The record is a 66-nucleotide RNA from Taibaiella lutea, which matches "Fluoride riboswitch aptamer (crcB RNA motif)" in Rfam. Rfam 15.1 lists 2,293 matches to the family in 1,982 species. The base pairs follow the family's consensus structure, which is taken from published work.

RNA sequence: GUGUCUCAAGGUGAUGGUGUUCCACCUAUUUGAACCGCUCUCCGAGCUGAUGACGCCUGCAAAAUC
Numbered sequence: 001g002u003g004u005c006u007c008a009a010g011g012u013g014a015u016g017g018u019g020u021u022c023c024a025c026c027u028a029u030u031u032g033a034a035c036c037g038c039u040c041u042c043c044g045a046g047c048u049g050a051u052g053a054c055g056c057c058u059g060c061a062a063a064a065u066c
Base pairs, nucleotide, nucleotide: 010026011025012024013023016057017056018055019054020053021052037047038046039045